[Rfam]
RNA sequence: UGUAUCAGGGGAUGAAACCUCAUAACAAUCUUAGGACACCUUCUGACACAGUGCAUAGCCUGCCCUGUGAAUGAGAAGGAACUUCUUAUCUGAUGAUACU
Numbered sequence: 001u002g003u004a005u006c007a008g009g010g011g012a013u014g015a016a017a018c019c020u021c022a023u024a025a026c027a028a029u030c031u032u033a034g035g036a037c038a039c040c041u042u043c044u045g046a047c048a049c050a051g052u053g054c055a056u057a058g059c060c061u062g063c064c065c066u067g068u069g070a071a072u073g074a075g076a077a078g079g080a081a082c083u084u085c086u087u088a089u090c091u092g093a094u095g096a097u098a099c100u
Stems, first nucleotide, its partner, number of pairs: 002099006047053002

The family of this 100-nucleotide RNA sequence from Eragrostis curvula is "Small nucleolar RNA snoR31/Z110/Z27".
It is annotated as a C/D-box small nucleolar RNA.
About the family: This family contains several related snoRNAs including R31, Z27 and Z110.
It scores 64 bits against the family's covariance model.